[Rfam]
RNA sequence: AGGGUAGUAUCAAUAGAACUAUACCAGACAUUUUAGCAUAAAUUAUUUAAUACAACUCAUAUCUAUAUGAAUGAGAUUGAAAU
Numbered sequence: 001a002g003g004g005u006a007g008u009a010u011c012a013a014u015a016g017a018a019c020u021a022u023a024c025c026a027g028a029c030a031u032u033u034u035a036g037c038a039u040a041a042a043u044u045a046u047u048u049a050a051u052a053c054a055a056c057u058c059a060u061a062u063c064u065a066u067a068u069g070a071a072u073g074a075g076a077u078u079g080a081a082a083u
Stems, first nucleotide, its partner, number of pairs: 002025002004022005010017002053079003056075005062070002